[Rfam]
RNA sequence: GAAGCAGGAACCCGGCACUGCGCCCGCAGAUCAGACCGGGACCGCCAUCGUGCGAACGAUGGCUACC
Numbered sequence: 001g002a003a004g005c006a007g008g009a010a011c012c013c014g015g016c017a018c019u020g021c022g023c024c025c026g027c028a029g030a031u032c033a034g035a036c037c038g039g040g041a042c043c044g045c046c047a048u049c050g051u052g053c054g055a056a057c058g059a060u061g062g063c064u065a066c067c
Stems, first nucleotide, its partner, number of pairs: 011040005018029004044063008

Rfam assigns this 67-nucleotide sequence from Actinomadura verrucosospora to the family "Transposase-2 RNA". Rfam 15.1 lists 214 matches to the family in 110 species. The family's consensus secondary structure is taken from published work. Lineage of the source: Bacteria > Bacillati > Actinomycetota > Actinomycetes > Actinomadura.